[Rfam]
The family of this 179-nucleotide RNA from Loxodonta africana is "Small nucleolar RNA SNORA81".
It is annotated as an H/ACA-box small nucleolar RNA.
RNA sequence: ACAAGUUUGUUUAAGCUCUGUGCUAAAAUUGCAGGAACUGCUGUCAUGUCUUAGUGUUUGUCAUAAAGCUGGUGGAGUAAACACAAGAAGAAACGCAACUGCCCCCGACAGUAAAAAGACUGGGAUGAACAUCUUUCUUAAGUCCAGAGUAGUCUGUUCUGAGAUUCGGUACAGCAAUA
Numbered sequence: 001a002c003a004a005g006u007u008u009g010u011u012u013a014a015g016c017u018c019u020g021u022g023c024u025a026a027a028a029u030u031g032c033a034g035g036a037a038c039u040g041c042u043g044u045c046a047u048g049u050c051u052u053a054g055u056g057u058u059u060g061u062c063a064u065a066a067a068g069c070u071g072g073u074g075g076a077g078u079a080a081a082c083a084c085a086a087g088a089a090g091a092a093a094c095g096c097a098a099c100u101g102c103c104c105c106c107g108a109c110a111g112u113a114a115a116a117a118g119a120c121u122g123g124g125a126u127g128a129a130c131a132u133c134u135u136u137c138u139u140a141a142g143u144c145c146a147g148a149g150u151a152g153u154c155u156g157u158u159c160u161g162a163g164a165u166u167c168g169g170u171a172c173a174g175c176a177a178u179a
Stems, first nucleotide, its partner, number of pairs: 018077002021074005029066003034058002037055004043049002100173002104169002107166002122150001126146002129143001